[Rfam]
RNA sequence: CCUGCUAUGCGACUAGCAGUAGCCUAGGGAGACAUGCGUCACUGGUAACGGUGGGGUGUGAAGCUCUCCUGACAACGUAGCCCCCGCAAGGGUGCUCAAGGACCGUGAGGUCCGUGGGCAGCAGAUCGAAGUAGCAUCGGUCGAGGAGC
Dot-bracket structure: .((((((......))))))........((((((((((.((((((....)))))).)))))....))))).............(((....)))((((......((....))......))))...((((((.......)))))).......
The family of this 149-nucleotide sequence is "Group II catalytic intron D1-D4-7". The family has 244 seed sequences and 1,296 matches in Rfam 15.1. Rfam links the family to the GO term Group II intron splicing. About the family: Group II introns are found in rRNA, tRNA and mRNA of organelles in fungi, plants and protists, and also in mRNA in bacteria.